[Rfam]
RNA: L31-Corynebacteriaceae ribosomal protein leader
Organism: Corynebacterium marinum
RNA sequence: ACUCAGGCACGAUCCACGCCUUAUGUAUUCAUGCGCGCGGAACCGACCUGAUGUUCUAUCCUGAGGGA
Numbered sequence: 001a002c003u004c005a006g007g008c009a010c011g012a013u014c015c016a017c018g019c020c021u022u023a024u025g026u027a028u029u030c031a032u033g034c035g036c037g038c039g040g041a042a043c044c045g046a047c048c049u050g051a052u053g054u055u056c057u058a059u060c061c062u063g064a065g066g067g068a
Base pairs, nucleotide, nucleotide: 001054002053004050005049006048007047013041014040015039017037018036019035022033023032024031025030